[Rfam]
A member of the RNA family "Streptococcus sRNA Spd-sr37" from Streptococcus sp. DD13, 65 nucleotides long. The family's RNA type in Rfam is small RNA. It scores 65 bits against the family's covariance model. A reference for the family is Tsui et al. (2010), "Identification and characterization of noncoding small RNAs in Streptococcus pneumoniae serotype 2 strain D39", J Bacteriol.

RNA sequence: CAAUCGAAAUGAUGGUCAAAGCUCAUGGAUGUUGCAGGCUUUUUGUCUGCACUUCUGCGGGAUUU
Numbered sequence: 001c002a003a004u005c006g007a008a009a010u011g012a013u014g015g016u017c018a019a020a021g022c023u024c025a026u027g028g029a030u031g032u033u034g035c036a037g038g039c040u041u042u043u044u045g046u047c048u049g050c051a052c053u054u055c056u057g058c059g060g061g062a063u064u065u
Base pairs, nucleotide, nucleotide: 019065020064021063023061024060033051034050035049036048037047038046